Annotation
Mammalian CPEB3 ribozyme: a 76-nucleotide sequence from Crocodylus porosus.
[Rfam]
RNA sequence: GGUUGUUAGUAUAAGGCCAUAGCAGAAGCAAUCACAGCAUGGCCUGUCAGAUUCCAACAAAUUUGUGAAUUCUACU
Numbered sequence: 001g002g003u004u005g006u007u008a009g010u011a012u013a014a015g016g017c018c019a020u021a022g023c024a025g026a027a028g029c030a031a032u033c034a035c036a037g038c039a040u041g042g043c044c045u046g047u048c049a050g051a052u053u054c055c056a057a058c059a060a061a062u063u064u065g066u067g068a069a070u071u072c073u074a075c076u
Stems, first nucleotide, its partner, number of pairs: 015044004021076002024073004028040001048065006
The organism belongs to Crocodylus, within Eukaryota. The family's consensus secondary structure is taken from published work.